This 113-nucleotide RNA from Sparus aurata belongs to the Rfam family "Vault RNA".
RNA sequence: GUGGAGGUUUAGUUCAGUGGUUACUUCCUAACUGUUGUCAGUAAUUCUAACCUCACCCGGUUCGCGUCCAGCGUUCCCCGAGCAUCAAACCACGGGCGCUGUCCUCUGCUUUU
Numbered sequence: 001g002u003g004g005a006g007g008u009u010u011a012g013u014u015c016a017g018u019g020g021u022u023a024c025u026u027c028c029u030a031a032c033u034g035u036u037g038u039c040a041g042u043a044a045u046u047c048u049a050a051c052c053u054c055a056c057c058c059g060g061u062u063c064g065c066g067u068c069c070a071g072c073g074u075u076c077c078c079c080g081a082g083c084a085u086c087a088a089a090c091c092a093c094g095g096g097c098g099c100u101g102u103c104c105u106c107u108g109c110u111u112u113u
Stems, first nucleotide, its partner, number of pairs: 002108006012097004017093006
By type it is a non-coding RNA gene. Taxonomically the source falls in Sparus (Eukaryota, Opisthokonta, Teleostomi, Eurypterygia). Rfam 15.1 lists 2,873 matches to the family in 431 species.